[Rfam]
RNA: SAM riboswitch aptamer (S box leader)
RNA sequence: CUCUUAUUAAGAACCACGAGAUGAGGAUCUAUGAAGUGGUGGCAACCCUUGUGUAAAGAAGGUGCCUUACCUAGCAAGUUAGACUUGAACAAUAAGAG
Numbered sequence: 001c002u003c004u005u006a007u008u009a010a011g012a013a014c015c016a017c018g019a020g021a022u023g024a025g026g027a028u029c030u031a032u033g034a035a036g037u038g039g040u041g042g043c044a045a046c047c048c049u050u051g052u053g054u055a056a057a058g059a060a061g062g063u064g065c066c067u068u069a070c071c072u073a074g075c076a077a078g079u080u081a082g083a084c085u086u087g088a089a090c091a092a093u094a095a096g097a098g
Stems, first nucleotide, its partner, number of pairs: 001098008013040005020029003025072002041066004046062002048058003075087005